[Rfam]
The record is a 95-nucleotide sequence from Natranaerobius trueperi, which matches "THF (Tetrahydrofolate) riboswitch aptamer" in Rfam. A reference for the family is Huang et al. (2011), "Long-range pseudoknot interactions dictate the regulatory response in the tetrahydrofolate riboswitch", Proc Natl Acad Sci U S A. Rfam describes the family as follows. Tetrahydrofolate (THF) riboswitch was first reported for Ames et al. as an RNA motif in 5' untranslated (5'-UTR)regions of folate transport and biosynthesis genes in Firmicutes genomes.
RNA sequence: GGUAGAGUAGGUGCUCUGCGUUAAGUGGUAAGGGAUGGAACGUUGCCCUUAGACGAAAGCUUUUUAAGCUGCGUUAGAUCACCGCGUUCGCUACU
Numbered sequence: 001g002g003u004a005g006a007g008u009a010g011g012u013g014c015u016c017u018g019c020g021u022u023a024a025g026u027g028g029u030a031a032g033g034g035a036u037g038g039a040a041c042g043u044u045g046c047c048c049u050u051a052g053a054c055g056a057a058a059g060c061u062u063u064u065u066a067a068g069c070u071g072c073g074u075u076a077g078a079u080c081a082c083c084g085c086g087u088u089c090g091c092u093a094c095u
Stems, first nucleotide, its partner, number of pairs: 001095005010083004015078004019073003025054002029051006038089005058070004

It scores 74 bits against the family's covariance model.